[Rfam]
RNA: MIR1219 microRNA precursor family
Organism: Physcomitrium patens
RNA sequence: GUCUUUUCCUGCCUCUCACUAGCUUCUUCCCUCCCUGCCUGAGUCGCAGUCUGGGAGGUAAGGAGCUAUUGGUAGACAGGAAUAGCG
Numbered sequence: 001g002u003c004u005u006u007u008c009c010u011g012c013c014u015c016u017c018a019c020u021a022g023c024u025u026c027u028u029c030c031c032u033c034c035c036u037g038c039c040u041g042a043g044u045c046g047c048a049g050u051c052u053g054g055g056a057g058g059u060a061a062g063g064a065g066c067u068a069u070u071g072g073u074a075g076a077c078a079g080g081a082a083u084a085g086c087g
Base pairs, nucleotide, nucleotide: 003085004084006082007081008080009079010078011077013075014074016072017071018070020068021067022066023065024064025063026062028060030058031057032056033055034054035053037051039049040048